[Rfam]
RNA sequence: UGAGUAAGACAGAUGGUCGCUGCCGCAGAGGCCGAAAGGCUGCGGGAGAGGAAAGUCCGGGCUUCACAGGGCAGGAUGCCAGAUAACGUCUGGCGGAGGCGACUCCAGGGAUAGUGCAACAGAAAUAAACCGCACAGCGUAAGCUGUGUAAGGGUGGAAAGGCAGUGUAAGAGACUACCGCCCGACUGGUAACAGGCGGGGCAUAUGUAAACCCCAUUUGAAGCAAGGCCGAACAGGGAGCACAGGGCGGCCCGUCCGCUCCGGGUAGGCUGCUUGAGGCCGGCGGUGACGCCGGUCCUAGAUAGAUGACCAUCCAACGACAUAACCCGGCUUAUCGUCUUACUCGAACA
Numbered sequence: 001u002g003a004g005u006a007a008g009a010c011a012g013a014u015g016g017u018c019g020c021u022g023c024c025g026c027a028g029a030g031g032c033c034g035a036a037a038g039g040c041u042g043c044g045g046g047a048g049a050g051g052a053a054a055g056u057c058c059g060g061g062c063u064u065c066a067c068a069g070g071g072c073a074g075g076a077u078g079c080c081a082g083a084u085a086a087c088g089u090c091u092g093g094c095g096g097a098g099g100c101g102a103c104u105c106c107a108g109g110g111a112u113a114g115u116g117c118a119a120c121a122g123a124a125a126u127a128a129a130c131c132g133c134a135c136a137g138c139g140u141a142a143g144c145u146g147u148g149u150a151a152g153g154g155u156g157g158a159a160a161g162g163c164a165g166u167g168u169a170a171g172a173g174a175c176u177a178c179c180g181c182c183c184g185a186c187u188g189g190u191a192a193c194a195g196g197c198g199g200g201g202c203a204u205a206u207g208u209a210a211a212c213c214c215c216a217u218u219u220g221a222a223g224c225a226a227g228g229c230c231g232a233a234c235a236g237g238g239a240g241c242a243c244a245g246g247g248c249g250g251c252c253c254g255u256c257c258g259c260u261c262c263g264g265g266u267a268g269g270c271u272g273c274u275u276g277a278g279g280c281c282g283g284c285g286g287u288g289a290c291g292c293c294g295g296u297c298c299u300a301g302a303u304a305g306a307u308g309a310c311c312a313u314c315c316a317a318c319g320a321c322a323u324a325a326c327c328c329g330g331c332u333u334a335u336c337g338u339c340u341u342a343c344u345c346g347a348a349c350a
Base pairs, nucleotide, nucleotide: 001346002345003344004343005342006341007340008339009338010337011335012314013313014312015311016310017309018308020048021047023045024044025043026042027041028040053333054332055331057330058329059328060327061326062223063222064221065220069253070252071251072250074219075218076217077216078215079093080092081091082090083089094108095106096105097104098103109214110213114212115211116208117207118206130153131152132149133148134147135146136145137144138143161179162178164176165175166174180202181200182199183198184197186195187194188193227271228270229269230268237262238261239260240259241258246256247255248254278297279296280295281294282293283292284291285290
Overview:
Rfam assigns this 350-nucleotide RNA from Clostridium sp. AM58-1XD to the family "Bacterial RNase P class A". On this family, see Brown, Nucleic Acids Res 1999: "The Ribonuclease P Database". Lineage of the source: Bacteria > Bacillati > Eubacteriales > Clostridiaceae > Clostridium. Pairs were carried over by alignment from the consensus structure, which is taken from published work. Rfam classes the family as a ribozyme.